[Rfam]
RNA sequence: UUUCCUUGCCUUUCAGGCAUCCUCUCCCAAACUUUCAUGCCCGGUCGGCUUGCCGACCGGGCAUUUUUCUUGCCUGC
Number, nucleotide and partner (000 for none) at each position: 001u000002u000003u000004c000005c000006u000007u000008g018009c017010c016011u015012u000013u000014c000015a011016g010017g009018c008019a000020u000021c000022c000023u000024c000025u000026c000027c000028c000029a000030a000031a000032c000033u000034u000035u000036c000037a000038u000039g062040c061041c060042c059043g058044g057045u056046c055047g054048g000049c000050u000051u000052g000053c000054c047055g046056a045057c044058c043059g042060g041061g040062c039063a000064u000065u000066u000067u000068u000069c000070u000071u000072g000073c000074c000075u000076g000077c000

This 77-nucleotide RNA from Qipengyuania algicida belongs to the Rfam family "Makes More Granules Regulator RNA (mmgR)". Rfam 15.1 lists 1,791 matches to the family in 918 species. A search with the family's covariance model found it, with a score of 48 bits. Rfam's curators write: SuhB later renamed mmgR (makes more granules regulator) was a putative non-coding RNA found multiple times in the Agrobacterium tumefaciens genome and related alpha-proteobacteria. Other non-coding RNAs uncovered in the same analysis include: speF, ybhL, metA, and serC.Several studies inSinorhizobium meliloti showed that suhB element is indeed a non-coding RNA:firstly it was detected on Northern blot and called Sm8RNA, secondly in an RNAseq study referred to as SmelC689.The mutant phenotype's (strain lacking the small RNA) cytoplasm contains higher content of polyhydroxybutyrate (PBH)storage granules than wild type strain. The base pairs follow the family's consensus structure. Rfam classes the family as a small RNA.